Shown here is a 118-nucleotide RNA sequence from Malus domestica, a member of the family "MIR390 microRNA precursor family".
A reference for the family is Gustafson et al. (2005), "ASRP: the Arabidopsis Small RNA Project Database", Nucleic Acids Res.
Taxonomically the source falls in Malus (Eukaryota, Viridiplantae, Mesangiospermae, Gunneridae).
RNA sequence: AGGGAGAAUCUGUAAAGCUCAGGAGGGAUAGCGCCAUAUGAACAAAGGGUCUAUUUACUAGGUGGGCGUUUCUUUGUUCAUCAUGCGCUAUCCAUCCUGAGUUUCAUGGCUUCUUCAU
Numbered sequence: 001a002g003g004g005a006g007a008a009u010c011u012g013u014a015a016a017g018c019u020c021a022g023g024a025g026g027g028a029u030a031g032c033g034c035c036a037u038a039u040g041a042a043c044a045a046a047g048g049g050u051c052u053a054u055u056u057a058c059u060a061g062g063u064g065g066g067c068g069u070u071u072c073u074u075u076g077u078u079c080a081u082c083a084u085g086c087g088c089u090a091u092c093c094a095u096c097c098u099g100a101g102u103u104u105c106a107u108g109g110c111u112u113c114u115u116c117a118u
Stems, first nucleotide, its partner, number of pairs: 010109001016103009026093009